[Rfam]
A member of the RNA family "mir-5928 microRNA precursor family" from Haemonchus placei, 75 nucleotides long. NCBI's taxonomy places the organism under Eukaryota, Eumetazoa, Rhabditida, Strongyloidea, Haemonchus. Gene Ontology terms of the family: miRNA-mediated post-transcriptional gene silencing and RISC complex.

RNA sequence: GGCUCAAACUCAAAGUAGAGUAGUUUAGUAGGGUCAGCUGAUACUGCUGACCUACUCUAUUUCAAAUUUGGGCUC
Numbered sequence: 001g002g003c004u005c006a007a008a009c010u011c012a013a014a015g016u017a018g019a020g021u022a023g024u025u026u027a028g029u030a031g032g033g034u035c036a037g038c039u040g041a042u043a044c045u046g047c048u049g050a051c052c053u054a055c056u057c058u059a060u061u062u063c064a065a066a067u068u069u070g071g072g073c074u075c
Stems, first nucleotide, its partner, number of pairs: 001074008013062011025050006033042003
Pairs were carried over by alignment from the consensus structure, which was predicted with RNAalifold.